This 62-nucleotide RNA sequence from Astyanax mexicanus belongs to the Rfam family "mir-728 microRNA precursor family". The organism belongs to Astyanax, within Eukaryota. Its family is annotated with miRNA-mediated post-transcriptional gene silencing and RISC complex in the Gene Ontology.
[Rfam]
RNA sequence: AAAUGUAGUAGACUUAAAGUAUACAUGACACUUGUGAAGUAUACUAAGUACACUACGUUUUC
Numbered sequence: 001a002a003a004u005g006u007a008g009u010a011g012a013c014u015u016a017a018a019g020u021a022u023a024c025a026u027g028a029c030a031c032u033u034g035u036g037a038a039g040u041a042u043a044c045u046a047a048g049u050a051c052a053c054u055a056c057g058u059u060u061u062c
Stems, first nucleotide, its partner, number of pairs: 001060009012049003018045007

Notes
It scores 74 bits against the family's covariance model.